[Rfam]
RNA sequence: CGUUUGAAGUUAGUUUGGUAUUCGUUGGAUCAGCUUCACAAGGAGUGUAUUCUGAUGAUAAGCAAGUCAACAUCAAUCUAUGAGUGUCGGAGAAGGGUUUUGAGAAUGUAGCAAUUUUUAUUAAUUGUGUUAUAGCUUGAGACUUGGAUACGAUGCUUUGGAUUGAGGAACGCGUAGUAAGCUUUGAGCGGAUUCGAAAGGAUCUCCUUACUAUGGAUGUUGGUGAAAUAACUUUAAGCGACCCGUCUUGAAACACGG
Numbered sequence: 001c002g003u004u005u006g007a008a009g010u011u012a013g014u015u016u017g018g019u020a021u022u023c024g025u026u027g028g029a030u031c032a033g034c035u036u037c038a039c040a041a042g043g044a045g046u047g048u049a050u051u052c053u054g055a056u057g058a059u060a061a062g063c064a065a066g067u068c069a070a071c072a073u074c075a076a077u078c079u080a081u082g083a084g085u086g087u088c089g090g091a092g093a094a095g096g097g098u099u100u101u102g103a104g105a106a107u108g109u110a111g112c113a114a115u116u117u118u119u120a121u122u123a124a125u126u127g128u129g130u131u132a133u134a135g136c137u138u139g140a141g142a143c144u145u146g147g148a149u150a151c152g153a154u155g156c157u158u159u160g161g162a163u164u165g166a167g168g169a170a171c172g173c174g175u176a177g178u179a180a181g182c183u184u185u186g187a188g189c190g191g192a193u194u195c196g197a198a199a200g201g202a203u204c205u206c207c208u209u210a211c212u213a214u215g216g217a218u219g220u221u222g223g224u225g226a227a228a229u230a231a232c233u234u235u236a237a238g239c240g241a242c243c244c245g246u247c248u249u250g251a252a253a254c255a256c257g258g
Base pairs, nucleotide, nucleotide: 001240002239003238004237005236006235007234008233009232010231011230012229021062022061024059025058026057068222069221070220071219072218073217074216243258244257245256246255
RNA: Eukaryotic large subunit ribosomal RNA, nucleotides 428 to 685